[Rfam]
RNA sequence: CUGUGAACCUAAAACUGCUCUUAAAAAGUCUUUUCAAAGGUUUUUUUAAAGCAGGGGAACAUUUGCUGUAUUAAGAUCAUACAUGUGUCUCCAGACCUAGUUCUUUCUCUAGGUCUGGUUUUAUGAAGACUGGUGGUAAAC
Numbered sequence: 001c002u003g004u005g006a007a008c009c010u011a012a013a014a015c016u017g018c019u020c021u022u023a024a025a026a027a028g029u030c031u032u033u034u035c036a037a038a039g040g041u042u043u044u045u046u047u048a049a050a051g052c053a054g055g056g057g058a059a060c061a062u063u064u065g066c067u068g069u070a071u072u073a074a075g076a077u078c079a080u081a082c083a084u085g086u087g088u089c090u091c092c093a094g095a096c097c098u099a100g101u102u103c104u105u106u107c108u109c110u111a112g113g114u115c116u117g118g119u120u121u122u123a124u125g126a127a128g129a130c131u132g133g134u135g136g137u138a139a140a141c
Stems, first nucleotide, its partner, number of pairs: 003066003015054005021048001023046010076134004091118010
The family of this 141-nucleotide sequence from Odobenus rosmarus is "Small nucleolar RNA SNORA72". On this family, see Ganot et al., Genes Dev 1997: "The family of box ACA small nucleolar RNAs is defined by an evolutionarily conserved secondary structure and ubiquitous sequence elements essential for RNA accumulation". It is annotated as an H/ACA-box small nucleolar RNA. It scores 72 bits against the family's covariance model. U72 is a member of the H/ACA class of snoRNAs. The snoRNA gene is located in intron 4 of the ribosomal L30 protein gene in human, mouse and chicken.